[Rfam]
RNA: Plant signal recognition particle RNA
RNA sequence: GUCGAGCUCAAUCACAUGAGCUUGUGAUCCAAGUGGGGGCAUUAAGGUGGUGGAACACAGGCUCAAUCAACUGGGUCGGAUUUGUGAUGGUUGAAUGCCUGUUUUGCCCAAUCCAAGUUGGGAGCCUGACCCUAGUGACCUAGGUGUAGGCUUGGGUUGACUGAUUGGGCCCUAAAGUGGCAGGGAUUGCGUGAGGCUGGUUUAACAGAGCAACAGAGCAACGAACACUGCCCGCUCUUGUCAGUAGAAGGAUAACGAGUUGGUGCCAUCCAGAUCCAAUGCUGCCUGAUUGGUUGUGCUCCUAUUGAACCAUUACUUUU
Numbered sequence: 001g002u003c004g005a006g007c008u009c010a011a012u013c014a015c016a017u018g019a020g021c022u023u024g025u026g027a028u029c030c031a032a033g034u035g036g037g038g039g040c041a042u043u044a045a046g047g048u049g050g051u052g053g054a055a056c057a058c059a060g061g062c063u064c065a066a067u068c069a070a071c072u073g074g075g076u077c078g079g080a081u082u083u084g085u086g087a088u089g090g091u092u093g094a095a096u097g098c099c100u101g102u103u104u105u106g107c108c109c110a111a112u113c114c115a116a117g118u119u120g121g122g123a124g125c126c127u128g129a130c131c132c133u134a135g136u137g138a139c140c141u142a143g144g145u146g147u148a149g150g151c152u153u154g155g156g157u158u159g160a161c162u163g164a165u166u167g168g169g170c171c172c173u174a175a176a177g178u179g180g181c182a183g184g185g186a187u188u189g190c191g192u193g194a195g196g197c198u199g200g201u202u203u204a205a206c207a208g209a210g211c212a213a214c215a216g217a218g219c220a221a222c223g224a225a226c227a228c229u230g231c232c233c234g235c236u237c238u239u240g241u242c243a244g245u246a247g248a249a250g251g252a253u254a255a256c257g258a259g260u261u262g263g264u265g266c267c268a269u270c271c272a273g274a275u276c277c278a279a280u281g282c283u284g285c286c287u288g289a290u291u292g293g294u295u296g297u298g299c300u301c302c303u304a305u306u307g308a309a310c311c312a313u314u315a316c317u318u319u320u
Stems, first nucleotide, its partner, number of pairs: 001040003004023007028037003044319010056307002059303002061299002064296003068292003072288005078277007088268003092265002099263003103259004108251002112248002115245001117242001119240007128171001130169003134162002136159010172177001179232005188225001190223003197216003